Shown here is a 127-nucleotide RNA sequence from Moschus moschiferus, a member of the family "Small nucleolar RNA SNORA27".
RNA sequence: ACACCCCCUUUCACUCUGCCAACUGGACUUAUGUCUUCAUUGGUCAUUCAAGUGGGGCAAAGGAAAUAACCUUUUAAAAUUCAGGCAAACUGGAUGUCUGUCUUAUAACCUGUCAGAGGAAACAAUG
Numbered sequence: 001a002c003a004c005c006c007c008c009u010u011u012c013a014c015u016c017u018g019c020c021a022a023c024u025g026g027a028c029u030u031a032u033g034u035c036u037u038c039a040u041u042g043g044u045c046a047u048u049c050a051a052g053u054g055g056g057g058c059a060a061a062g063g064a065a066a067u068a069a070c071c072u073u074u075u076a077a078a079a080u081u082c083a084g085g086c087a088a089a090c091u092g093g094a095u096g097u098c099u100g101u102c103u104u105a106u107a108a109c110c111u112g113u114c115a116g117a118g119g120a121a122a123c124a125a126u127g
Base pairs, nucleotide, nucleotide: 032059033058034057035056036055040051041050042049043048070119071118072117073116074115083103084102085101086100087099089097090096
Rfam 15.1 lists 819 matches to the family in 543 species. It scores 135 bits against the family's covariance model. Its family is annotated with nucleolus and RNA processing in the Gene Ontology. Rfam describes the family as follows. ACA27 is a member of the H/ACA class of snoRNA that guide the sites of modification of uridines to pseudouridines. Clan: SNORA27 clan.